[Rfam]
RNA sequence: GAUUAGUGUAAUUCCCGGCAAUAAGGACAGGGAAGCUUCCACCGGCCAACCGUAAAUUGGCUGUCACCACUUCUC
Numbered sequence: 001g002a003u004u005a006g007u008g009u010a011a012u013u014c015c016c017g018g019c020a021a022u023a024a025g026g027a028c029a030g031g032g033a034a035g036c037u038u039c040c041a042c043c044g045g046c047c048a049a050c051c052g053u054a055a056a057u058u059g060g061c062u063g064u065c066a067c068c069a070c071u072u073c074u075c
Stems, first nucleotide, its partner, number of pairs: 001075002005071004012034005018028001044062006
A member of the RNA family "2dG-II purine riboswitch aptamer" from Gracilimonas tropica, 75 nucleotides long. The base pairs follow the family's consensus structure, which is taken from published work. A reference for the family is Weinberg et al. (2017), "Bioinformatic analysis of riboswitch structures uncovers variant classes with altered ligand specificity", Proc Natl Acad Sci U S A. Its Rfam clan is "Purine riboswitches".